[Rfam]
Shown here is a 78-nucleotide sequence from Schistosoma bovis, a member of the family "mir-3492 microRNA precursor family". The source organism's lineage runs through Eukaryota, Metazoa, Eumetazoa, Schistosomatoidea and Schistosoma. Rfam 15.1 lists 21,496 matches to the family in 13 species. Gene Ontology terms of the family: miRNA-mediated post-transcriptional gene silencing and RISC complex.
RNA sequence: AGCUUUUUGAAUCUGUGCUGAGAUUUCGUCAGACACCAAACCAUUAGGGCUGAUCAGACUCCUAAGAUAUGUGGAGUU
Number, nucleotide and partner (000 for none) at each position: 001a000002g077003c076004u075005u074006u073007u000008u071009g070010a000011a068012u067013c066014u000015g000016u000017g062018c000019u000020g061021a060022g059023a000024u058025u057026u056027c000028g054029u053030c052031a000032g000033a000034c000035a000036c000037c000038a000039a000040a000041c000042c000043a000044u000045u000046a000047g000048g000049g000050c000051u000052g030053a029054u028055c000056a026057g025058a024059c022060u021061c020062c017063u000064a000065a000066g013067a012068u011069a000070u009071g008072u000073g006074g005075a004076g003077u002078u000